Shown here is a 114-nucleotide sequence from Sporosarcina sp. JAI121, a member of the family "SAM riboswitch aptamer (S box leader)". A search with the family's covariance model found it, with a score of 82 bits. Rfam links the family to the GO term regulation of gene expression.
RNA sequence: UUCUUAUCCAGAGAGGUGGAGGGACUGGCCCUUAGAUACCUCAGCAACAGACUGUUCAAGUACUGUGCUAAUUCCAGAAGCGUAAGUGUAAUGCUUAUUGCUUGGAGAUAAGAA
Numbered sequence: 001u002u003c004u005u006a007u008c009c010a011g012a013g014a015g016g017u018g019g020a021g022g023g024a025c026u027g028g029c030c031c032u033u034a035g036a037u038a039c040c041u042c043a044g045c046a047a048c049a050g051a052c053u054g055u056u057c058a059a060g061u062a063c064u065g066u067g068c069u070a071a072u073u074c075c076a077g078a079a080g081c082g083u084a085a086g087u088g089u090a091a092u093g094c095u096u097a098u099u100g101c102u103u104g105g106a107g108a109u110a111a112g113a114a
Stems, first nucleotide, its partner, number of pairs: 001114008013042005021031003025077004043069004048065002051061003073106001078103005